[Rfam]
RNA: Ribosomal protein L20 leader
Organism: Lentibacillus salicampi
RNA sequence: AGAGACAAGUAGAGGCACCCGCUUCUCACCUGAUCGACGCUUAUGUGCAGUCGGCUGGUCUUAAACUUUUCAAUAGCAAUUAUUGGAGACGUGUGGGUGCAUAUAUGUACCGGCACUUUUUAUUUGCG
Numbered sequence: 001a002g003a004g005a006c007a008a009g010u011a012g013a014g015g016c017a018c019c020c021g022c023u024u025c026u027c028a029c030c031u032g033a034u035c036g037a038c039g040c041u042u043a044u045g046u047g048c049a050g051u052c053g054g055c056u057g058g059u060c061u062u063a064a065a066c067u068u069u070u071c072a073a074u075a076g077c078a079a080u081u082a083u084u085g086g087a088g089a090c091g092u093g094u095g096g097g098u099g100c101a102u103a104u105a106u107g108u109a110c111c112g113g114c115a116c117u118u119u120u121u122a123u124u125u126g127c128g
Stems, first nucleotide, its partner, number of pairs: 011026006028059003036052003039048002092115003096111006